[Rfam]
RNA sequence: GCUGUUAUCAGGUGGAACACGAUGCAAUUUUGGUUGGUGUAAUAGGAGGAAAAUUGCACGGUAUCCAUCUGUAAACCGCA
Numbered sequence: 001g002c003u004g005u006u007a008u009c010a011g012g013u014g015g016a017a018c019a020c021g022a023u024g025c026a027a028u029u030u031u032g033g034u035u036g037g038u039g040u041a042a043u044a045g046g047a048g049g050a051a052a053a054u055u056g057c058a059c060g061g062u063a064u065c066c067a068u069c070u071g072u073a074a075a076c077c078g079c080a
Stems, first nucleotide, its partner, number of pairs: 009071008019062002023058009